This 381-nucleotide RNA from Mucilaginibacter pedocola belongs to the Rfam family "Bacterial RNase P class A". Rfam classes the family as a ribozyme. Its family is annotated with tRNA processing, dimeric ribonuclease P complex and ribonuclease P activity in the Gene Ontology.
RNA sequence: AUCGCAAAACGUUCUAUCGCUGCCACGAUACGUCGGGGCGGAGGAAAGUCCGGGCAACAUAGAGCAUCCUGCUUCCUAACGGGAAGGCGCCCGCAGCGGGCGACAGCAAGUGCCACAGAGAAUAUACCGCCGGUUUUACAACUGGUAAGGGUGAAAACGUGAGGUAAGAGCUCACGGCCUUCGUAGGCGACUGCGAUUGCGGUAAACCUCAGGAGUUGAAAAACCAAAUAGGUCCUGAAAGCGGAGUUGCUCGCUCCCUCCUCUUCACAGGGGUGUCAGGAUGGGUAGGUUGCUUGAACCUGCCGGCAACGGCAGGGCCAGAUCAAUGAUAGAAGUUUCGGAAACGGAAUACAGAACCCGGCUUACAGGUUUGCAGCUGAC
Numbered sequence: 001a002u003c004g005c006a007a008a009a010c011g012u013u014c015u016a017u018c019g020c021u022g023c024c025a026c027g028a029u030a031c032g033u034c035g036g037g038g039c040g041g042a043g044g045a046a047a048g049u050c051c052g053g054g055c056a057a058c059a060u061a062g063a064g065c066a067u068c069c070u071g072c073u074u075c076c077u078a079a080c081g082g083g084a085a086g087g088c089g090c091c092c093g094c095a096g097c098g099g100g101c102g103a104c105a106g107c108a109a110g111u112g113c114c115a116c117a118g119a120g121a122a123u124a125u126a127c128c129g130c131c132g133g134u135u136u137u138a139c140a141a142c143u144g145g146u147a148a149g150g151g152u153g154a155a156a157a158c159g160u161g162a163g164g165u166a167a168g169a170g171c172u173c174a175c176g177g178c179c180u181u182c183g184u185a186g187g188c189g190a191c192u193g194c195g196a197u198u199g200c201g202g203u204a205a206a207c208c209u210c211a212g213g214a215g216u217u218g219a220a221a222a223a224c225c226a227a228a229u230a231g232g233u234c235c236u237g238a239a240a241g242c243g244g245a246g247u248u249g250c251u252c253g254c255u256c257c258c259u260c261c262u263c264u265u266c267a268c269a270g271g272g273g274u275g276u277c278a279g280g281a282u283g284g285g286u287a288g289g290u291u292g293c294u295u296g297a298a299c300c301u302g303c304c305g306g307c308a309a310c311g312g313c314a315g316g317g318c319c320a321g322a323u324c325a326a327u328g329a330u331a332g333a334a335g336u337u338u339c340g341g342a343a344a345c346g347g348a349a350u351a352c353a354g355a356a357c358c359c360g361g362c363u364u365a366c367a368g369g370u371u372u373g374c375a376g377c378u379g380a381c
Base pairs, nucleotide, nucleotide: 002376004374005373006372007371008370010368011366012334013333014332015331016330017329018328020041021040022039023038024037026035027034028033046364047363048362050361051360052359053358054357055218056217057216058215062268064266067214068213069212070211071210072086073085074084075083076082087104088102089101090100091099105209106208110207111206112203113202114201127150128149129146130145131144132143133142134141135140158176159175160174161173162172163171181196182195183194184193185192186191222291223290224289225288232282233281234280235279236278237277261273262272263271299316300315301314302313303312304311305310